[Rfam]
RNA: Small nucleolar RNA SNORA8
RNA sequence: AGCGCUGCUAGUAUCUGCAUCCAGUUGUUUCUCAAACUGGUAUGUUCAUAAGUCAGUGCAAGAACAAUGCAGUGUUUGGCAUCGUUGGGCUCUUUGCUCCAUGUGCUUAAGAGCCCUGGUAAAUUACUGUGACACUGAA
Numbered sequence: 001a002g003c004g005c006u007g008c009u010a011g012u013a014u015c016u017g018c019a020u021c022c023a024g025u026u027g028u029u030u031c032u033c034a035a036a037c038u039g040g041u042a043u044g045u046u047c048a049u050a051a052g053u054c055a056g057u058g059c060a061a062g063a064a065c066a067a068u069g070c071a072g073u074g075u076u077u078g079g080c081a082u083c084g085u086u087g088g089g090c091u092c093u094u095u096g097c098u099c100c101a102u103g104u105g106c107u108u109a110a111g112a113g114c115c116c117u118g119g120u121a122a123a124u125u126a127c128u129g130u131g132a133c134a135c136u137g138a139a
Base pairs, nucleotide, nucleotide: 002059003058004057005056006055007054013053014052016050017045018044019043020042022040023038024037025036026035063128066125067124068123070118071117072116078107079106080105081104082103